Glycine riboswitch aptamer: a 154-nucleotide RNA from Moraxella pluranimalium. The source organism's lineage runs through Bacteria, Pseudomonadota, Gammaproteobacteria, Moraxellales and Moraxella.

RNA sequence: GUUUGAUUUUCAGGAGAGUGUGUUUUUUGCUUUUUUUGAUAGGAAGGAUAAAACAGCAAAGCCAUGUCAAUACAUGGUAAAAACACCACCGAAGGCGUAAACUGUGCUCGCACAAUCCCCAUAAUCGCUCAGGUAAACGGACUGAAAAUCUCGA
Numbered sequence: 001g002u003u004u005g006a007u008u009u010u011c012a013g014g015a016g017a018g019u020g021u022g023u024u025u026u027u028u029g030c031u032u033u034u035u036u037u038g039a040u041a042g043g044a045a046g047g048a049u050a051a052a053a054c055a056g057c058a059a060a061g062c063c064a065u066g067u068c069a070a071u072a073c074a075u076g077g078u079a080a081a082a083a084c085a086c087c088a089c090c091g092a093a094g095g096c097g098u099a100a101a102c103u104g105u106g107c108u109c110g111c112a113c114a115a116u117c118c119c120c121a122u123a124a125u126c127g128c129u130c131a132g133g134u135a136a137a138c139g140g141a142c143u144g145a146a147a148a149u150c151u152c153g154a
Stems, first nucleotide, its partner, number of pairs: 006149008020086008088134003091130002095128003